Source information
Shown here is a 136-nucleotide RNA from Chinchilla lanigera, a member of the family "Small nucleolar RNA SNORA58". Its Rfam clan is "SNORA44 clan". It scores 136 bits against the family's covariance model. The family's RNA type in Rfam is H/ACA-box small nucleolar RNA. NCBI's taxonomy places the organism under Eukaryota, Vertebrata, Glires, Hystricomorpha, Chinchilla. A reference for the family is Huttenhofer et al. (2001), "RNomics: an experimental approach that identifies 201 candidates for novel, small, non-messenger RNAs in mouse", EMBO J. Rfam describes the family as follows. ACA52 is a member of the H/ACA class of snoRNA that guide the sites of modification of uridines to pseudouridines.

RNA sequence: CGGCAUAUAUGUAGACCUUGCCUGGCUCUCUUUAUGGUCAGCCAAGGGGGACAGUAUAUGCUAGAGUGGUGUGGAGUUCCUGCCAGCUCUAACCAGCUGAAUCAGUGGCUGGGUAAAUCGCAGGGCUCCAACAUUC
Numbered sequence: 001c002g003g004c005a006u007a008u009a010u011g012u013a014g015a016c017c018u019u020g021c022c023u024g025g026c027u028c029u030c031u032u033u034a035u036g037g038u039c040a041g042c043c044a045a046g047g048g049g050g051a052c053a054g055u056a057u058a059u060g061c062u063a064g065a066g067u068g069g070u071g072u073g074g075a076g077u078u079c080c081u082g083c084c085a086g087c088u089c090u091a092a093c094c095a096g097c098u099g100a101a102u103c104a105g106u107g108g109c110u111g112g113g114u115a116a117a118u119c120g121c122a123g124g125g126c127u128c129c130a131a132c133a134u135u136c
Stems, first nucleotide, its partner, number of pairs: 003061006016047005022041003073129004078125001081122003093112005